A member of the RNA family "Small nucleolar RNA R12" from Zea mays, 83 nucleotides long. Its family is annotated with nucleolus and RNA processing in the Gene Ontology. The family's RNA type in Rfam is C/D-box small nucleolar RNA. The family has 9 seed sequences and 992 matches in Rfam 15.1. About the family: snoR12 is a C/D box small nucleolar RNA, which acts as a methylation guide for 25S ribosomal RNA in plants. snoR12 has been alternatively named snoZ44 in Arabidopsis and snoZ131 in rice.

[Rfam]
RNA sequence: GCGAGAAUGACGAAGAAAAUCAAUCGGAUUCCCAUUUAUUUUUACGUGAAAGAUGAGAUCUUAAACAACUACUUCUGACUCGC
Dot-bracket structure: (((((.........................................................................)))))
Numbered sequence: 001g002c003g004a005g006a007a008u009g010a011c012g013a014a015g016a017a018a019a020u021c022a023a024u025c026g027g028a029u030u031c032c033c034a035u036u037u038a039u040u041u042u043u044a045c046g047u048g049a050a051a052g053a054u055g056a057g058a059u060c061u062u063a064a065a066c067a068a069c070u071a072c073u074u075c076u077g078a079c080u081c082g083c
Stems, first nucleotide, its partner, number of pairs: 001083005